[Rfam]
RNA sequence: GGAUAUGAGAGCGAUCUGGCUGCGACAUCUGUCACCCCAUUGAUCGCCAGGGUUGAUUCGGCUGAUCUGGCUGGCUAGGCGGGUGUCCCCUUCCUCCCUCACCGCUCCAUGUGCGUCCCUCCCGAAGUUGCACGCUCGGUCGAAGAGGACGACCAUCCCCGCUAGAGGAGGACCGUUAUUCGGUCAAGGGUAUACAAGUAGCUGCGCUCCCCUGCUAGAACCUCCAAACAAGCUCUCAAGUAGACAGUUAUGCCAAAUAAACCAGGAAGACAUACAGAGACAAAGAGAGAGGGAGAGAGGAAAAAGGUGGGAGGGAAGGAGAUGGGUUGAAAAUCAU
Numbered sequence: 001g002g003a004u005a006u007g008a009g010a011g012c013g014a015u016c017u018g019g020c021u022g023c024g025a026c027a028u029c030u031g032u033c034a035c036c037c038c039a040u041u042g043a044u045c046g047c048c049a050g051g052g053u054u055g056a057u058u059c060g061g062c063u064g065a066u067c068u069g070g071c072u073g074g075c076u077a078g079g080c081g082g083g084u085g086u087c088c089c090c091u092u093c094c095u096c097c098c099u100c101a102c103c104g105c106u107c108c109a110u111g112u113g114c115g116u117c118c119c120u121c122c123c124g125a126a127g128u129u130g131c132a133c134g135c136u137c138g139g140u141c142g143a144a145g146a147g148g149a150c151g152a153c154c155a156u157c158c159c160c161g162c163u164a165g166a167g168g169a170g171g172a173c174c175g176u177u178a179u180u181c182g183g184u185c186a187a188g189g190g191u192a193u194a195c196a197a198g199u200a201g202c203u204g205c206g207c208u209c210c211c212c213u214g215c216u217a218g219a220a221c222c223u224c225c226a227a228a229c230a231a232g233c234u235c236u237c238a239a240g241u242a243g244a245c246a247g248u249u250a251u252g253c254c255a256a257a258u259a260a261a262c263c264a265g266g267a268a269g270a271c272a273u274a275c276a277g278a279g280a281c282a283a284a285g286a287g288a289g290a291g292g293g294a295g296a297g298a299g300g301a302a303a304a305a306g307g308u309g310g311g312a313g314g315g316a317a318g319g320a321g322a323u324g325g326g327u328u329g330a331a332a333a334u335c336a337u
Base pairs, nucleotide, nucleotide: 001108002107003106006101007100008099009098011096013093014092018090019089024087025086026085027084028083029082030081031080032079033078035074036073037070038069039068042067043066044065045064046062047061048060116171117170118168119167120166121165122139123138124137125136127135128134141161142160147158148157149156201335203333207329210326211325212324215321223316224315225314229311232308233307234306

Source information:
Shown here is a 337-nucleotide RNA sequence from Carlito syrichta, a member of the family "7SK RNA". The family has 45 seed sequences and 49,373 matches in Rfam 15.1. On this family, see Blencowe, Curr Biol 2002: "Transcription: surprising role for an elusive small nuclear RNA". Rfam's curators write: 7SK was discovered as an abundant small nuclear RNA in the mid-70s but a possible function has only recently been suggested. Two independent studies have found that 7SK RNA binds the CDK9/cyclin T complex (known as elongation factor P-TEFb). P-TEFb activates transcription by phosphorylating the C-terminal domain of RNA polymerase II. This process is negatively regulated by the 7SK RNP. The secondary structure of 7SK RNA shown here was proposed by Wasserman and Steitz on the basis of chemical modification and enzymatic cleavage experiments. This family contains a number of annotated pseudogenes and 7SK derived repeats. The threshold is artificially high to minimise the pseudogene count. It scores 254 bits against the family's covariance model. The family's RNA type in Rfam is non-coding RNA gene.